[Rfam]
RNA sequence: GGCGGUGCUCAGGUGAUGCACCCCAGAAUCGGGCUCCCUCCUCUCUGGUUCCGGGUGUGUCACCCAGAACUGCA
Dot-bracket structure: .((.((.((..((((((.(((((..((((((((..........)))))))).))))).)))))).)).)).)).
The record is a 74-nucleotide sequence from Cnephaeus nilssonii, which matches "mir-9223 microRNA precursor family" in Rfam.
Gene Ontology terms of the family: RISC complex and miRNA-mediated post-transcriptional gene silencing.
The base pairs follow the family's consensus structure, which was predicted with RNAalifold.
A search with the family's covariance model found it, with a score of 70 bits.
Rfam 15.1 lists 14,641 matches to the family in 28 species.
NCBI's taxonomy places the organism under Eukaryota, Deuterostomia, Craniata, Teleostomi, Cnephaeus.